This 143-nucleotide RNA from Mus musculus belongs to the Rfam family "Small nucleolar RNA SNORA48". The literature on the family includes a 1997 paper in J Mol Biol by Ofengand and Bakin, "Mapping to nucleotide resolution of pseudouridine residues in large subunit ribosomal RNAs from representative eukaryotes, prokaryotes, archaebacteria, mitochondria and chloroplasts". Rfam describes the family as follows. The snoRNA ACA 48 has been identified to guide pseudouridylation of the residue U3797 in the 28S rRNA subunit. Rfam classes the family as an H/ACA-box small nucleolar RNA. Rfam links the family to the GO terms RNA processing and nucleolus. The organism belongs to Mus, within Eukaryota.
RNA sequence: UCCCCCGGUAAUCGGCUAAGGGACACUUUGUUGUUGGUGGUGUUCUUAUAUCAGUCAGGGGCAGAGCAGAUCACAAUCCUUUGCUCAUCUUAGCUUGAUGCCUGGCUUGGUAACCAAAGCUGCCUUAUGCCUAGGACUCAUAA
Dot-bracket structure: (.((((.(...(.(...(((.(.((((........)))).)...)))...).)..).)))).)...................(.((..........(.(...(((..((.(.......).))..))).).)..)).)......